Record summary:
mir-19 microRNA precursor family: a 79-nucleotide sequence from Poecilia reticulata. Its family is annotated with miRNA-mediated post-transcriptional gene silencing and RISC complex in the Gene Ontology. The family is grouped with related families in Rfam's "mir-19 clan". A reference for the family is Houbaviy et al. (2003), "Embryonic stem cell-specific MicroRNAs", Dev Cell.
RNA sequence: GUCUCUGGUUAGUUUUGCUGGUUUGCUUUCAGCUUUCCAAGGUAGUGCUGUGCAAAUCCAUGCAAAACUGAUCAUAGAA
Dot-bracket structure: ..((.(((((((((((((.(((((((.(..(((.............)))).))))).))..))))))))))))).))..